Notes: TD-2 RNA: a 95-nucleotide RNA from Treponema denticola. Pairs were carried over by alignment from the consensus structure, which is taken from published work. Its Rfam clan is "TD (Treponema denticola) motifs". Taxonomically the source falls in Treponema denticola (Bacteria, Pseudomonadati, Spirochaetia, Treponemataceae).
[Rfam]
Nucleotides: 095
Stems, first nucleotide, its partner, number of pairs: 001018001034056008043047001058091004064085008
Number, partner (000 for none) and nucleotide at each position: 001018u002000c003000a004000c005000g006000g007000a008000c009000g010000g011000c012000a013000a014000a015000a016000a017000a018001a019000a020000c021000g022000u023000c024000a025000u026000a027000a028000g029000u030000c031000u032000u033000g034056c035055g036054a037053g038052u039051u040050u041049g042000g043047c044000g045000a046000a047043g048000a049041c050040a051039a052038a053037c054036u055035c056034g057000g058091u059090a060089u061088g062000a063000a064085a065084a066083u067082u068081g069080c070079a071078c072000a073000c074000g075000g076000a077000g078071g079070u080069g081068c082067a083066a084065u085064u086000c087000c088061c089060a090059u091058a092000c093000c094000g095000a